[Rfam]
RNA sequence: GAGAUGGUAUUUCUAGUGAAAACUAUACUCUUUUACACCAUUAUAUUUUAUUUUAAAAAAUGAGCUUAUAUAAGUAAUGAGACUCAAAA
Number, nucleotide and partner (000 for none) at each position: 001g030002a029003g028004a026005u025006g024007g023008u022009a000010u021011u020012u000013c000014u000015a000016g000017u000018g000019a000020a011021a010022a008023c007024u006025a005026u004027a000028c003029u002030c001031u000032u000033u000034u000035a000036c000037a000038c000039c000040a000041u000042u000043a000044u000045a000046u000047u000048u000049u000050a000051u000052u000053u000054u000055a000056a000057a000058a000059a000060a000061u000062g085063a084064g083065c081066u080067u079068a078069u077070a000071u076072a000073a000074g000075u000076a071077a069078u068079g067080a066081g065082a000083c064084u063085c062086a000087a000088a000089a000
The record is an 89-nucleotide sequence from Anaerococcus nagyae, which matches "pan motif" in Rfam. The source organism's lineage runs through Bacteria, Bacillati, Bacillota, Peptoniphilaceae and Anaerococcus. It is annotated as a cis-regulatory element. A search with the family's covariance model found it, with a score of 44 bits.